[Rfam]
A member of the RNA family "U4 spliceosomal RNA" from Enhydra lutris, 126 nucleotides long. The family's RNA type in Rfam is spliceosomal small nuclear RNA. Its family is annotated with U4 snRNP and spliceosomal tri-snRNP complex assembly in the Gene Ontology. The family's consensus secondary structure is taken from published work. The match comes from Rfam's covariance-model search (60 bits). For this family Rfam cites "The uRNA database" (Zwieb, Nucleic Acids Res, 1997).
RNA sequence: AGCUUUGCGCAGUGGCAGUAUCGUAGCCAAUGAGGUUUAUCUGAGGCGCGAUUAUUGCUAAAUGGAUUUUCUACAUUAAAAAAUCAUAUAAAAGAUGUUUUUACUUGCUAUUCCCACUGCCUAGAA
Dot-bracket structure: ...................(((((.(((.....((.....))..))))))))......................(.(((((.(((.(....).))).)))).).).....................
Numbered sequence: 001a002g003c004u005u006u007g008c009g010c011a012g013u014g015g016c017a018g019u020a021u022c023g024u025a026g027c028c029a030a031u032g033a034g035g036u037u038u039a040u041c042u043g044a045g046g047c048g049c050g051a052u053u054a055u056u057g058c059u060a061a062a063u064g065g066a067u068u069u070u071c072u073a074c075a076u077u078a079a080a081a082a083a084u085c086a087u088a089u090a091a092a093a094g095a096u097g098u099u100u101u102u103a104c105u106u107g108c109u110a111u112u113c114c115c116a117c118u119g120c121c122u123a124g125a126a
Stems, first nucleotide, its partner, number of pairs: 020052005026047003034042002075105001077103001078101004083096003087092001